Rfam assigns this 80-nucleotide RNA sequence from Thinocorus orbignyianus to the family "ctgf/hcs24 CAESAR". The 3' UTR of human connective tissue growth factor/hypertrophic chondrocyte specific 24 (ctgf/hcs24) mRNA has been shown to repress ctgf gene expression. The family's consensus secondary structure is taken from published work.
[Rfam]
RNA sequence: ACGGGGACAUGGCGUAAAGCCUGGGAGGAGACGCUCCUCUUGACUCCAUUCUCAACUUGAACUGAUUUGCAUCUCAUUUU
Numbered sequence: 001a002c003g004g005g006g007a008c009a010u011g012g013c014g015u016a017a018a019g020c021c022u023g024g025g026a027g028g029a030g031a032c033g034c035u036c037c038u039c040u041u042g043a044c045u046c047c048a049u050u051c052u053c054a055a056c057u058u059g060a061a062c063u064g065a066u067u068u069g070c071a072u073c074u075c076a077u078u079u080u
Stems, first nucleotide, its partner, number of pairs: 004075004011021003028070001030068002
Dot-bracket structure: ...((((...(((.....)))......(.((...................................)).).)))).....

Source information: For this family Rfam cites "Involvement of cis-acting repressive element(s) in the 3'-untranslated region of human connective tissue growth factor gene" (Kubota et al., FEBS Lett, 1999).